[Rfam]
RNA: Small nucleolar RNA Z102/R77
Organism: Papaver somniferum
RNA sequence: GAAUGAGGUGAUGAUUAGGUUAUUUCCCUAUUGGUUUGAUCGUCGAAAUGAUGGCAUAAGUGUAUUAGCUCUAGCUGGUCAUUC
Numbered sequence: 001g002a003a004u005g006a007g008g009u010g011a012u013g014a015u016u017a018g019g020u021u022a023u024u025u026c027c028c029u030a031u032u033g034g035u036u037u038g039a040u041c042g043u044c045g046a047a048a049u050g051a052u053g054g055c056a057u058a059a060g061u062g063u064a065u066u067a068g069c070u071c072u073a074g075c076u077g078g079u080c081a082u083u084c
Base pairs, nucleotide, nucleotide: 002083003082004081005080042055043054044053